The record is an 84-nucleotide sequence from Anolis carolinensis, which matches "mir-425 microRNA precursor family" in Rfam. The source organism's lineage runs through Eukaryota, Craniata, Gnathostomata, Sarcopterygii and Anolis.
[Rfam]
Nucleotides: 084
Base pairs, nucleotide, nucleotide: 006079007078009076010075011074012073016069017068018067019066020065021064022063023062027059028058029057030056031055033054034053036052037051
Number, partner (000 for none) and nucleotide at each position: 001000g002000a003000a004000u005000g006079g007078u008000u009076u010075u011074g012073g013000a014000a015000u016069g017068a018067c019066a020065c021064g022063a023062u024000c025000a026000c027059u028058c029057c030056c031055g032000c033054u034053g035000a036052g037051c038000g039000a040000g041000c042000a043000g044000a045000g046000c047000c048000a049000c050000g051037g052036c053034c054033a055031c056030g057029g058028g059027g060000a061000u062023g063022u064021c065020g066019u067018g068017u069016c070000u071000g072000u073012c074011c075010a076009a077000a078007a079006c080000u081000a082000u083000u084000u
A reference for the family is Ahn et al. (2010), "MicroRNA transcriptome in the newborn mouse ovaries determined by massive parallel sequencing", Mol Hum Reprod. It is one of the family's seed sequences.